Record summary
The record is a 547-nucleotide part of an RNA from Heteramoeba clara, which matches "Eukaryotic small subunit ribosomal RNA" in Rfam. The base pairs follow the family's consensus structure, which is taken from published work. Taxonomically the source falls in Heteramoeba (Eukaryota, Heterolobosea, Tetramitia, Eutetramitea).

RNA sequence: UGACGGAAAGGCACCACCAGGGGUGGAGUCUGCGGCUUAAUUCGACUCAACACGGGAAAACUCACCAAGUCCAGAUAGCGUUAUGAUUGACAGGUUAAUAGUCCUUUCUUGAUUCUCUAAUAGGUGGUGCAUGGCCGUUCUUAGUUCGUGGAGUGAUCUGUCUAGUUAAUUCUGUUAACGAACGAGACCUUUGCCGUUGAUUGAACUACUGCUAACCGGCUCUGCUGGUACAGUAGUCGGCCUACGGGCCAACCCACAACGGGACGAUACAGCGUACCCCAGCGUAAGGAAGUUAAAGGCAAUAACAGGUCUGUGAUGCUCUAAUAUGUCUUGGGCCGCACGCGUACUACAAUGGUGACUUUAGUGAGCAAGCACCGACGCGGCCCUGUCUAGACAGGUCUGCAUCUCCACUACUCAGAACGUAUAGGUAAUCUUUCAAACGUCAUCAUGACUGGGAUAGUAGGCUGUAAAGUCUACUCCAACGAGGAAUCCCCCGUAAGCGCGAGUCAUCAUCCCGCAUUGACUACGUCCCUGCCUUUUGUACACA
Numbered sequence: 001u002g003a004c005g006g007a008a009a010g011g012c013a014c015c016a017c018c019a020g021g022g023g024u025g026g027a028g029u030c031u032g033c034g035g036c037u038u039a040a041u042u043c044g045a046c047u048c049a050a051c052a053c054g055g056g057a058a059a060a061c062u063c064a065c066c067a068a069g070u071c072c073a074g075a076u077a078g079c080g081u082u083a084u085g086a087u088u089g090a091c092a093g094g095u096u097a098a099u100a101g102u103c104c105u106u107u108c109u110u111g112a113u114u115c116u117c118u119a120a121u122a123g124g125u126g127g128u129g130c131a132u133g134g135c136c137g138u139u140c141u142u143a144g145u146u147c148g149u150g151g152a153g154u155g156a157u158c159u160g161u162c163u164a165g166u167u168a169a170u171u172c173u174g175u176u177a178a179c180g181a182a183c184g185a186g187a188c189c190u191u192u193g194c195c196g197u198u199g200a201u202u203g204a205a206c207u208a209c210u211g212c213u214a215a216c217c218g219g220c221u222c223u224g225c226u227g228g229u230a231c232a233g234u235a236g237u238c239g240g241c242c243u244a245c246g247g248g249c250c251a252a253c254c255c256a257c258a259a260c261g262g263g264a265c266g267a268u269a270c271a272g273c274g275u276a277c278c279c280c281a282g283c284g285u286a287a288g289g290a291a292g293u294u295a296a297a298g299g300c301a302a303u304a305a306c307a308g309g310u311c312u313g314u315g316a317u318g319c320u321c322u323a324a325u326a327u328g329u330c331u332u333g334g335g336c337c338g339c340a341c342g343c344g345u346a347c348u349a350c351a352a353u354g355g356u357g358a359c360u361u362u363a364g365u366g367a368g369c370a371a372g373c374a375c376c377g378a379c380g381c382g383g384c385c386c387u388g389u390c391u392a393g394a395c396a397g398g399u400c401u402g403c404a405u406c407u408c409c410a411c412u413a414c415u416c417a418g419a420a421c422g423u424a425u426a427g428g429u430a431a432u433c434u435u436u437c438a439a440a441c442g443u444c445a446u447c448a449u450g451a452c453u454g455g456g457a458u459a460g461u462a463g464g465c466u467g468u469a470a471a472g473u474c475u476a477c478u479c480c481a482a483c484g485a486g487g488a489a490u491c492c493c494c495c496g497u498a499a500g501c502g503c504g505a506g507u508c509a510u511c512a513u514c515c516c517g518c519a520u521u522g523a524c525u526a527c528g529u530c531c532c533u534g535c536c537u538u539u540u541g542u543a544c545a546c547a
Stems, first nucleotide, its partner, number of pairs: 001545002003542003007539007016529002020493005025350001027348003031344004035339002041056004065334005071328001076119003080115001089108002092105003123322002126320004132316001133314001134310003137306003144183006150159003163174003189298004194262006203253001265289001268286003272283002354447006366435003408428002412424003454483001459478007499521002502518003506514001